[Rfam]
RNA sequence: GUUGACAACGGGUAUUCUUAGGUUAAUAAUACCAGACAGAGAUGUUAUUGCUUGAGAAUACACGUAAUUGAC
Numbered sequence: 001g002u003u004g005a006c007a008a009c010g011g012g013u014a015u016u017c018u019u020a021g022g023u024u025a026a027u028a029a030u031a032c033c034a035g036a037c038a039g040a041g042a043u044g045u046u047a048u049u050g051c052u053u054g055a056g057a058a059u060a061c062a063c064g065u066a067a068u069u070g071a072c
Stems, first nucleotide, its partner, number of pairs: 001072005008065003012061012025049007032041001